[Rfam]
Shown here is a 106-nucleotide RNA from Lachnoclostridium phytofermentans, a member of the family "NiCo (Nickel/Cobalt) riboswitch aptamer". Gene Ontology terms of the family: metal ion homeostasis and cobalt ion binding.
RNA sequence: ACAGUACAAACUGAGCAGGCGAUGAACUUUAUUUCUAUAAAGUCAUGGGGCCGGGCCGCAAGAUGCGGCAACAGAUUGAAUUUCAAUUCACAUCUGUGGGACAGUA
Numbered sequence: 001a002c003a004g005u006a007c008a009a010a011c012u013g014a015g016c017a018g019g020c021g022a023u024g025a026a027c028u029u030u031a032u033u034u035c036u037a038u039a040a041a042g043u044c045a046u047g048g049g050g051c052c053g054g055g056c057c058g059c060a061a062g063a064u065g066c067g068g069c070a071a072c073a074g075a076u077u078g079a080a081u082u083u084c085a086a087u088u089c090a091c092a093u094c095u096g097u098g099g100g101a102c103a104g105u106a
Stems, first nucleotide, its partner, number of pairs: 010105004016100001018052003022046004055069005071097006